[Rfam]
A member of the RNA family "L17-Actino-Proteobacteria ribosomal protein leader" from Streptomyces dioscori, 57 nucleotides long.
It is annotated as a cis-regulatory leader.
Nucleotides: 057
Stems, first nucleotide, its partner, number of pairs: 001023004005018004027057003031054007
Number, partner (000 for none) and nucleotide at each position: 001023u002022c003021g004020a005018c006017a007016g008015g009000c010000g011000a012000u013000c014000g015008c016007c017006u018005g019000c020004u021003c022002g023001g024000a025000c026000a027057c028056u029055g030000a031054c032053c033052u034051c035050g036049g037048u038000a039000c040000c041000u042000g043000g044000u045000a046000c047000g048037g049036c050035c051034g052033g053032g054031g055029c056028a057027g

On this family, see Eckert and Weinberg, BMC Microbiol 2020: "Discovery of 20 novel ribosomal leader candidates in bacteria and archaea". It scores 62 bits against the family's covariance model. Pairs were carried over by alignment from the consensus structure, which is taken from published work. The organism belongs to Streptomyces, within Bacteria.